[Rfam]
RNA sequence: CAGGCAAGCUGAAGCUCCGCAGCGGCGCCUGGGCAAGAAAGCCCGACACCGUAUCCAAUCGGGGCUGAC
Number, nucleotide and partner (000 for none) at each position: 001c000002a000003g000004g000005c000006a000007a000008g000009c000010u000011g000012a000013a066014g065015c064016u063017c062018c061019g060020c000021a000022g000023c051024g050025g049026c000027g000028c000029c000030u045031g044032g043033g042034c000035a000036a000037g000038a000039a000040a000041g000042c033043c032044c031045g030046a000047c000048a000049c025050c024051g023052u000053a000054u000055c000056c000057a000058a000059u000060c019061g018062g017063g016064g015065c014066u013067g000068a000069c000
The family of this 69-nucleotide sequence from Rhizobium metallidurans is "ybhL leader". The pairing is the family consensus, mapped onto this sequence. About the family: This family is a putative regulatory RNA structure that is found upstream of an uncharacterized membrane protein in alpha-proteobacteria. Its family is annotated with regulation of gene expression in the Gene Ontology.